The family of this 91-nucleotide sequence from Streptomyces griseoviridis is "Streptomyces RNA 3202". The organism belongs to Streptomyces, within Bacteria. Rfam classes the family as a small RNA. The base pairs follow the family's consensus structure. A reference for the family is Vockenhuber et al. (2011), "Deep sequencing-based identification of small non-coding RNAs in Streptomyces coelicolor", RNA Biol. Rfam's curators write: Identified by deep sequencing of transcriptome at the end of exponential growth phase. Appears smaller on northern blot than sequencing transcript. This indicates processing step.
RNA sequence: CCACGUCCCGUCGCACUCCCCCCGGCGCCGGGACGUCCCCAGCCGGGCUCGGCGCUCUCCCCCCCCCCGGGCGCCCGAGCCCGGCUCCUCU
Dot-bracket structure: ....((((((.(((..........))).))))))......(((((((((.(((((((...........)))))))..))))))))).....